This 119-nucleotide RNA sequence from Brenneria goodwinii belongs to the Rfam family "Ribosomal S15 leader". Taxonomically the source falls in Brenneria (Bacteria, Pseudomonadati, Pseudomonadota, Enterobacterales). It scores 111 bits against the family's covariance model. Pairs were carried over by alignment from the consensus structure, which is taken from published work. Rfam's curators write: The E. coli Ribosomal S15 gene 5' UTR can form two alternative structures. One that is a series of three hairpins, The other includes a pseudoknot. This structure causes translational regulation of the S15 protein. The alignment of this family contains only the final two hairpins which are conserved in other species, and also includes the complete region that forms the alternate structures. Rfam classes the family as a cis-regulatory leader. Clan: Ribosomal Protein S15 Leader clan.
RNA sequence: UUGGGUGGCUGAAUUAGAGAUCGGCGCCUGUUUUUUUAUCUAUAAUGUUUUGGAGUAUUACUAUGUCUCUAAGUGUUGAAGCGAAAGCUAAAAUCGUUGCGGAAUUCGGUCGUGGCGCU
Numbered sequence: 001u002u003g004g005g006u007g008g009c010u011g012a013a014u015u016a017g018a019g020a021u022c023g024g025c026g027c028c029u030g031u032u033u034u035u036u037u038a039u040c041u042a043u044a045a046u047g048u049u050u051u052g053g054a055g056u057a058u059u060a061c062u063a064u065g066u067c068u069c070u071a072a073g074u075g076u077u078g079a080a081g082c083g084a085a086a087g088c089u090a091a092a093a094u095c096g097u098u099g100c101g102g103a104a105u106u107c108g109g110u111c112g113u114g115g116c117g118c119u
Stems, first nucleotide, its partner, number of pairs: 008025005049073007